[Rfam]
RNA sequence: UCCAUCGUGAGGUGGAAUCUGAAGGAAGCUGUAAGCAAACCUCUGGUCUGACGAACAGAAAUCACAUCAGGCUAUGUACGGGGGUAAGGUGGCAUCACACACCAAAGCCCAAUAACUGUACGGAACUGUGCAUAGUAAAUGUGGCAGAUAUAUGGAGGGAAAGAAACGUGU
Numbered sequence: 001u002c003c004a005u006c007g008u009g010a011g012g013u014g015g016a017a018u019c020u021g022a023a024g025g026a027a028g029c030u031g032u033a034a035g036c037a038a039a040c041c042u043c044u045g046g047u048c049u050g051a052c053g054a055a056c057a058g059a060a061a062u063c064a065c066a067u068c069a070g071g072c073u074a075u076g077u078a079c080g081g082g083g084g085u086a087a088g089g090u091g092g093c094a095u096c097a098c099a100c101a102c103c104a105a106a107g108c109c110c111a112a113u114a115a116c117u118g119u120a121c122g123g124a125a126c127u128g129u130g131c132a133u134a135g136u137a138a139a140u141g142u143g144g145c146a147g148a149u150a151u152a153u154g155g156a157g158g159g160a161a162a163g164a165a166a167c168g169u170g171u
Base pairs, nucleotide, nucleotide: 001016002015003014004013005012006011028171029170036163040158041157042156043155044154045153046149047148048147049146050145062144063143064142065141066140071136072135073134075132076131077130078129079128080127081126082110083109084108085107088103089102090101091100
Rfam assigns this 171-nucleotide sequence from Lachnospiraceae bacterium XPB1003 to the family "Group II catalytic intron D1-D4-3". The source organism's lineage runs through Bacteria, Bacillati, Bacillota, Clostridia and Lachnospiraceae. Group II introns are found in rRNA, tRNA and mRNA of organelles in fungi, plants and protists, and also in mRNA in bacteria.